This 35-nucleotide RNA from Myotis lucifugus belongs to the Rfam family "Iron response element I".
The base pairs follow the family's consensus structure, which is taken from published work.
For this family Rfam cites "Structured RNA upstream of insect cap distal iron responsive elements enhances iron regulatory protein-mediated control of translation" (Nichol and Winzerling, Insect Biochem Mol Biol, 2002).
Rfam classes the family as a cis-regulatory element.
RNA sequence: CUGUCUCCUGCUUCAACAGUGUUUGGACAGGACAC
Numbered sequence: 001c002u003g004u005c006u007c008c009u010g011c012u013u014c015a016a017c018a019g020u021g022u023u024u025g026g027a028c029a030g031g032a033c034a035c
Base pairs, nucleotide, nucleotide: 002034003033004032006031007030010028012027013026014025015024016023017021
Dot-bracket structure: .(((.((..(.((((((...).)))))).))))).